[Rfam]
Rfam assigns this 117-nucleotide RNA sequence from Plantimonas leprariae to the family "TPP riboswitch aptamer (THI element)".
It scores 61 bits against the family's covariance model.
The source organism's lineage runs through Bacteria, Pseudomonadati, Pseudomonadota, Aurantimonadaceae and Plantimonas.

Nucleotides: 117
Base pairs, nucleotide, nucleotide: 007104008103009102010101011066012065013064014063016060017034018033019032020031021030042059043058044057045056046055047054072097073096074095078091079090080089081088
Number, partner (000 for none) and nucleotide at each position: 001000g002000c003000g004000c005000c006000a007104u008103c009102a010101c011066a012065g013064g014063g015000g016060u017034g018033c019032u020031c021030c022000g023000c024000g025000a026000u027000g028000c029000c030021g031020g032019g033018g034017c035000u036000g037000a038000g039000a040000u041000u042059g043058g044057g045056a046055g047054c048000g049000c050000g051000g052000a053000g054047g055046c056045u057044c058043c059042c060016g061000g062000a063014c064013c065012c066011u067000u068000c069000g070000a071000a072097g073096c074095u075000g076000a077000c078091c079090u080089g081088g082000g083000u084000a085000a086000u087000g088081c089080c090079a091078g092000c093000g094000g095074a096073g097072c098000g099000a100000g101010g102009u103008g104007g105000a106000c107000g108000a109000u110000g111000u112000u113000u114000u115000c116000c117000g